[Rfam]
RNA sequence: CUUGUAUCCUUGUGCUUUGUAGUCUGAAAAAACUCAUAAAUUCUCAGUGUUCUCAUCAGCUUGGUCUCUUGUUAGAGAUGAGACUAAAGUUAAACAAGAUCAGCAAAUUC
Numbered sequence: 001c002u003u004g005u006a007u008c009c010u011u012g013u014g015c016u017u018u019g020u021a022g023u024c025u026g027a028a029a030a031a032a033c034u035c036a037u038a039a040a041u042u043c044u045c046a047g048u049g050u051u052c053u054c055a056u057c058a059g060c061u062u063g064g065u066c067u068c069u070u071g072u073u074a075g076a077g078a079u080g081a082g083a084c085u086a087a088a089g090u091u092a093a094a095c096a097a098g099a100u101c102a103g104c105a106a107a108u109u110c
Stems, first nucleotide, its partner, number of pairs: 048102002051099002058091005065083004
Source information:
The record is a 110-nucleotide sequence from Arabis alpina, which matches "Small nucleolar RNA snoR97" in Rfam. For this family Rfam cites "Experimental RNomics: identification of 140 candidates for small non-messenger RNAs in the plant Arabidopsis thaliana" (Marker et al., Curr Biol, 2002). The source organism's lineage runs through Eukaryota, Viridiplantae, Streptophytina, Magnoliopsida and Arabis. Gene Ontology terms of the family: RNA processing and nucleolus.